[Rfam]
RNA sequence: GAGACGGUGAUGAUUGGCGCAGGGGUACGGACCUCAGCUGAUGAUGGGAGCUGAGUGCUGACGCAUGUUCUCAGCUCGAGCAGCAUGUGGUUGUUUGGCUGGACGGCAUCAGCGCGACACAAUGCCAAGAUCUGAGUCUC
Numbered sequence: 001g002a003g004a005c006g007g008u009g010a011u012g013a014u015u016g017g018c019g020c021a022g023g024g025g026u027a028c029g030g031a032c033c034u035c036a037g038c039u040g041a042u043g044a045u046g047g048g049a050g051c052u053g054a055g056u057g058c059u060g061a062c063g064c065a066u067g068u069u070c071u072c073a074g075c076u077c078g079a080g081c082a083g084c085a086u087g088u089g090g091u092u093g094u095u096u097g098g099c100u101g102g103a104c105g106g107c108a109u110c111a112g113c114g115c116g117a118c119a120c121a122a123u124g125c126c127a128a129g130a131u132c133u134g135a136g137u138c139u140c
Stems, first nucleotide, its partner, number of pairs: 001140005
The record is a 140-nucleotide RNA sequence from Scleropages formosus, which matches "Small nucleolar RNA SNORD94" in Rfam. The literature on the family includes a 2003 paper in Nucleic Acids Res by Vitali et al., "Identification of 13 novel human modification guide RNAs". The match comes from Rfam's covariance-model search (98 bits). By type it is a C/D-box small nucleolar RNA. The organism belongs to Scleropages, within Eukaryota.